[Rfam]
RNA sequence: UUGGUUUAAAUUAUUGUGGGUCUACACUUUGAAAAUAGAACUCAUACGAAGUGGUAGGACAUACAUUGAUUUCACACAA
Numbered sequence: 001u002u003g004g005u006u007u008a009a010a011u012u013a014u015u016g017u018g019g020g021u022c023u024a025c026a027c028u029u030u031g032a033a034a035a036u037a038g039a040a041c042u043c044a045u046a047c048g049a050a051g052u053g054g055u056a057g058g059a060c061a062u063a064c065a066u067u068g069a070u071u072u073c074a075c076a077c078a079a
Base pairs, nucleotide, nucleotide: 001079002078003077006074008072009071010070011069012068013067015065016064017063018062022057023056024055025053026052027051028050029049030048031047